Background:
The family of this 600-nucleotide part of an RNA from an uncultured bacterium is "Bacterial small subunit ribosomal RNA". The family's consensus secondary structure is taken from published work. Rfam's curators put it in the seed alignment.

RNA sequence: UGACGGGGACCCGCACAAGUAGCGGAGCAUGUGGUUUAAUUCGAAGCAACGCGAAGAACCUUACCUAAGCUUGACAUCCCUCGGACCGGUAGUUAAUCCUACCUUCCUUCGGGGCCGAGGUGACAGGUGGUGCAUGGUUGUCGUCAGCUCGUGUCGUGAGAUGUUGGGUUAAGUCCCGCAACGAGCGCAACCCUUGUCUUUAGUUGCCAGCAUUUAGUUGGGCACUCUAGAGAGACUGCCAGGGAUAACCUGGAGGAAGGCGGGGAUGACGUCAAAUCAUCAUGCCCCUUAUGCUUAGGGCUACACACGUGCUACAAUGGGUGGUACAGAGGGUUGCCAAACCGUGAGGUGGAGCUAAUCCCUUAAAGCCAUUUUCAGUUCGGAUUGUAGGCUGAAACUCGCCUACAUGAAGCUGGAGUUACUAGUAAUCGCAGAUCAGAAUGCUGCGGUGAAUGCGUUCCCGGGUCUUGUACACACCGCCCGUCACACCAUGGGAGUCGGAAACACCCGAAGCCGAUUAUCUAACCGCAAGGAAGAAGUCGUCGAAGGUGGCGUCGAUAACUGGGGUGAAGUCGUAACAAGGUAGCCGUAAGCUUCACA
Numbered sequence: 001u002g003a004c005g006g007g008g009a010c011c012c013g014c015a016c017a018a019g020u021a022g023c024g025g026a027g028c029a030u031g032u033g034g035u036u037u038a039a040u041u042c043g044a045a046g047c048a049a050c051g052c053g054a055a056g057a058a059c060c061u062u063a064c065c066u067a068a069g070c071u072u073g074a075c076a077u078c079c080c081u082c083g084g085a086c087c088g089g090u091a092g093u094u095a096a097u098c099c100u101a102c103c104u105u106c107c108u109u110c111g112g113g114g115c116c117g118a119g120g121u122g123a124c125a126g127g128u129g130g131u132g133c134a135u136g137g138u139u140g141u142c143g144u145c146a147g148c149u150c151g152u153g154u155c156g157u158g159a160g161a162u163g164u165u166g167g168g169u170u171a172a173g174u175c176c177c178g179c180a181a182c183g184a185g186c187g188c189a190a191c192c193c194u195u196g197u198c199u200u201u202a203g204u205u206g207c208c209a210g211c212a213u214u215u216a217g218u219u220g221g222g223c224a225c226u227c228u229a230g231a232g233a234g235a236c237u238g239c240c241a242g243g244g245a246u247a248a249c250c251u252g253g254a255g256g257a258a259g260g261c262g263g264g265g266a267u268g269a270c271g272u273c274a275a276a277u278c279a280u281c282a283u284g285c286c287c288c289u290u291a292u293g294c295u296u297a298g299g300g301c302u303a304c305a306c307a308c309g310u311g312c313u314a315c316a317a318u319g320g321g322u323g324g325u326a327c328a329g330a331g332g333g334u335u336g337c338c339a340a341a342c343c344g345u346g347a348g349g350u351g352g353a354g355c356u357a358a359u360c361c362c363u364u365a366a367a368g369c370c371a372u373u374u375u376c377a378g379u380u381c382g383g384a385u386u387g388u389a390g391g392c393u394g395a396a397a398c399u400c401g402c403c404u405a406c407a408u409g410a411a412g413c414u415g416g417a418g419u420u421a422c423u424a425g426u427a428a429u430c431g432c433a434g435a436u437c438a439g440a441a442u443g444c445u446g447c448g449g450u451g452a453a454u455g456c457g458u459u460c461c462c463g464g465g466u467c468u469u470g471u472a473c474a475c476a477c478c479g480c481c482c483g484u485c486a487c488a489c490c491a492u493g494g495g496a497g498u499c500g501g502a503a504a505c506a507c508c509c510g511a512a513g514c515c516g517a518u519u520a521u522c523u524a525a526c527c528g529c530a531a532g533g534a535a536g537a538a539g540u541c542g543u544c545g546a547a548g549g550u551g552g553c554g555u556c557g558a559u560a561a562c563u564g565g566g567g568u569g570a571a572g573u574c575g576u577a578a579c580a581a582g583g584u585a586g587c588c589g590u591a592a593g594c595u596u597c598a599c600a
Stems, first nucleotide, its partner, number of pairs: 001474002003471003007468007015458002019422005024315001026313008034304002040055004064299007077123002079120005088103005106113002126288002129286004135282002137277003140273001142271002147186006153162003165178004192265004197233007207222002211220002236256002239253005319374007331362003336355002341350003381412001386407007428450007477582001479579001482575002487569004492564003497559005505551004513544001515542004521537003526533002585595003